[Rfam]
RNA sequence: CUUCAUGAGAUGUGGCGCCAAGCUCCGACUGGUCACACGCCAACCCCAUGUUCAAGGGUGGAUCGGAUGAAGAAGCGACCAAUCGGGAACUAAUGACAAACCCCCAAUUGGUAAGAGCACUCG
Numbered sequence: 001c002u003u004c005a006u007g008a009g010a011u012g013u014g015g016c017g018c019c020a021a022g023c024u025c026c027g028a029c030u031g032g033u034c035a036c037a038c039g040c041c042a043a044c045c046c047c048a049u050g051u052u053c054a055a056g057g058g059u060g061g062a063u064c065g066g067a068u069g070a071a072g073a074a075g076c077g078a079c080c081a082a083u084c085g086g087g088a089a090c091u092a093a094u095g096a097c098a099a100a101c102c103c104c105c106a107a108u109u110g111g112u113a114a115g116a117g118c119a120c121u122c123g
Base pairs, nucleotide, nucleotide: 001075002074003073004072009038011037012036013035014034015033016032021030022029040061041060044058045057046056078112079111080110081109082108083107085105086104087103

Overview: Rfam assigns this 123-nucleotide RNA sequence from Pseudarthrobacter sp. NBSH8 to the family "SAM (S-adenosyl methionine) riboswitch aptamer". Lineage of the source: Bacteria > Bacillati > Actinomycetes > Micrococcales > Pseudarthrobacter. From the family's description: SAM-IV is a mRNA element that regulates gene expression via direct sensing of S-adenosylmethionine (SAM or AdoMet). SAM-IV riboswitches share conserved nucleotide positions with the previously described SAM-I riboswitches sequence analysis and molecular recognition experiments suggest that SAM-I and SAM-IV riboswitches share similar ligand binding sites, but have different scaffolds.